This 201-nucleotide RNA sequence from Miscanthus lutarioriparius belongs to the Rfam family "MIR1435 microRNA precursor family". A search with the family's covariance model found it, with a score of 97 bits. NCBI's taxonomy places the organism under Eukaryota, Spermatophyta, Mesangiospermae, commelinids, Miscanthus.
[Rfam]
RNA sequence: UAACUUCUAAGUCAGACAUCUCUAACUUUUGACCAAUUUUUUAGAAAAAAAAAUACAUUAACAUCUACAUUUUCAAAGAAAUGCACUAUCAAAAUAUAUUUAAUGGAGAAUUUAGUGAAACUAAUUUGAUGUUAUGGAUGUUGGUGCAUUUUCCUAUAAACUUGGUCAAAGUUAGAGAAGUUUUACUUAGGACAAAACCAA
Numbered sequence: 001u002a003a004c005u006u007c008u009a010a011g012u013c014a015g016a017c018a019u020c021u022c023u024a025a026c027u028u029u030u031g032a033c034c035a036a037u038u039u040u041u042u043a044g045a046a047a048a049a050a051a052a053a054u055a056c057a058u059u060a061a062c063a064u065c066u067a068c069a070u071u072u073u074c075a076a077a078g079a080a081a082u083g084c085a086c087u088a089u090c091a092a093a094a095u096a097u098a099u100u101u102a103a104u105g106g107a108g109a110a111u112u113u114a115g116u117g118a119a120a121c122u123a124a125u126u127u128g129a130u131g132u133u134a135u136g137g138a139u140g141u142u143g144g145u146g147c148a149u150u151u152u153c154c155u156a157u158a159a160a161c162u163u164g165g166u167c168a169a170a171g172u173u174a175g176a177g178a179a180g181u182u183u184u185a186c187u188u189a190g191g192a193c194a195a196a197a198c199c200a201a
Stems, first nucleotide, its partner, number of pairs: 005196002007190006014183004019178004028170005042156003046152004056146003060142008069133001073129005